[Rfam]
This 98-nucleotide RNA from Lewinella sp. W8 belongs to the Rfam family "Bacteroidales small SRP". Pairs were carried over by alignment from the consensus structure, which is taken from published work. The family is grouped with related families in Rfam's "SRP clan". Its family is annotated with signal recognition particle, plasma membrane targeting and SRP-dependent cotranslational protein targeting to membrane, signal sequence recognition in the Gene Ontology. A reference for the family is Ryan et al. (2020), "A high-resolution transcriptome map identifies small RNA regulation of metabolism in the gut microbe Bacteroides thetaiotaomicron", Nat Commun. By type it is a non-coding RNA gene.
Nucleotides: 098
Stems, first nucleotide, its partner, number of pairs: 008094005013088005018082004
Number, partner (000 for none) and nucleotide at each position: 001000u002000g003000u004000g005000c006000c007000c008094g009093g010092g011091c012090g013088g014087c015086a016085u017084a018082c019081g020080g021079u022000c023000a024000g025000c026000u027000c028000c029000u030000c031000c032000u033000g034000a035000a036000c037000u038000c039000c040000c041000c042000c043000a044000g045000g046000g047000c048000g049000g050000a051000a052000a053000c054000g055000c056000a057000g058000c059000a060000a061000g062000g063000g064000u065000a066000g067000g068000g069000a070000g071000u072000u073000g074000u075000a076000g077000c078000g079021a080020c081019c082018g083000g084017u085016a086015u087014g088013c089000u090012u091011g092010c093009c094008c095000u096000u097000u098000u